[Rfam]
RNA sequence: UCCAGCGGUAGUCAGCUGUCCAGGGCAAUGCUGUGCCUGUGGCAGUGUUACACUGCUGGGAGAUAAAAAUCAGUCAUCUCUUCUGGCUGUUGUCACCGUUCUGGUGACAGCUGAUGCCAAGAAGAAGUGACGUGGUGCUUCCCUGAGAGUGUGCUAAGGGUUUCAUUUUGCUCUUCAGUGCUAGUCCGGAAGCAUACAUG
Numbered sequence: 001u002c003c004a005g006c007g008g009u010a011g012u013c014a015g016c017u018g019u020c021c022a023g024g025g026c027a028a029u030g031c032u033g034u035g036c037c038u039g040u041g042g043c044a045g046u047g048u049u050a051c052a053c054u055g056c057u058g059g060g061a062g063a064u065a066a067a068a069a070u071c072a073g074u075c076a077u078c079u080c081u082u083c084u085g086g087c088u089g090u091u092g093u094c095a096c097c098g099u100u101c102u103g104g105u106g107a108c109a110g111c112u113g114a115u116g117c118c119a120a121g122a123a124g125a126a127g128u129g130a131c132g133u134g135g136u137g138c139u140u141c142c143c144u145g146a147g148a149g150u151g152u153g154c155u156a157a158g159g160g161u162u163u164c165a166u167u168u169u170g171c172u173c174u175u176c177a178g179u180g181c182u183a184g185u186c187c188g189g190a191a192g193c194a195u196a197c198a199u200g
Base pairs, nucleotide, nucleotide: 001060002059003058004057005056006055007054008053009052011051012050015046016045017044018043019042020041021039022038023037024036068133073131074130075129076128079126081124082123084116085115087113089111091109092108093107094106095105096104097103135195136194137193138192139191140190141189142188151181152180153179155177156175157174158173159172160171161170

The record is a 200-nucleotide sequence from Phasianus colchicus, which matches "Small nucleolar RNA SNORA74" in Rfam. Rfam 15.1 lists 1,348 matches to the family in 628 species. Clan: SNORA74 clan. On this family, see Kiss et al., Mol Cell Biol 1996: "Characterization of the intron-encoded U19 RNA, a new mammalian small nucleolar RNA that is not associated with fibrillarin". Pairs were carried over by alignment from the consensus structure, which was predicted with PFOLD. Rfam classes the family as an H/ACA-box small nucleolar RNA. Rfam describes the family as follows. U19 belongs to the H/ACA class of snoRNAs. snoRNAs bind a number of proteins (including dyskerin, Gar1p and Nop10p in the case of the H/ACA class) to form snoRNP complexes.